Shown here is a 92-nucleotide sequence from Mobiluncus mulieris, a member of the family "Actino-pnp RNA".

RNA sequence: UUCGGUCCUCGGUAGUGACCUCCGGACGUGGCCAGUGGUACGGAAGCUUUCCGUGAAGAAAGACCGCCCGUGGGUCUCGAUCGAUGACCGCC
Numbered sequence: 001u002u003c004g005g006u007c008c009u010c011g012g013u014a015g016u017g018a019c020c021u022c023c024g025g026a027c028g029u030g031g032c033c034a035g036u037g038g039u040a041c042g043g044a045a046g047c048u049u050u051c052c053g054u055g056a057a058g059a060a061a062g063a064c065c066g067c068c069c070g071u072g073g074g075u076c077u078c079g080a081u082c083g084a085u086g087a088c089c090g091c092c
Stems, first nucleotide, its partner, number of pairs: 003090005009084005017076005023070003027066002
Rfam classes the family as a cis-regulatory element.